[Rfam]
RNA sequence: ACAGUACAAACUGAGCAGGCGAUGAAUCAAGAUAUUCUCUGAUUCAUGGGGCUGGGCCGUUUAUACGGCAGCAGAUGAGUGUUACACAUCUGUGGGACAGUA
Numbered sequence: 001a002c003a004g005u006a007c008a009a010a011c012u013g014a015g016c017a018g019g020c021g022a023u024g025a026a027u028c029a030a031g032a033u034a035u036u037c038u039c040u041g042a043u044u045c046a047u048g049g050g051g052c053u054g055g056g057c058c059g060u061u062u063a064u065a066c067g068g069c070a071g072c073a074g075a076u077g078a079g080u081g082u083u084a085c086a087c088a089u090c091u092g093u094g095g096g097a098c099a100g101u102a
Stems, first nucleotide, its partner, number of pairs: 010101004016096001018053003022047008056069005071093006
Dot-bracket structure: .........((((..(.(((.((((((((..........))))))))...)))..(((((....))))).((((((...........))))))..).)))).

The family of this 102-nucleotide RNA from Anaerocolumna aminovalerica is "NiCo (Nickel/Cobalt) riboswitch aptamer". For this family Rfam cites "Bacterial riboswitches cooperatively bind Ni(2+) or Co(2+) ions and control expression of heavy metal transporters" (Furukawa et al., Mol Cell, 2015). NCBI's taxonomy places the organism under Bacteria, Bacillati, Clostridia, Lachnospirales, Anaerocolumna. Its family is annotated with metal ion homeostasis and cobalt ion binding in the Gene Ontology.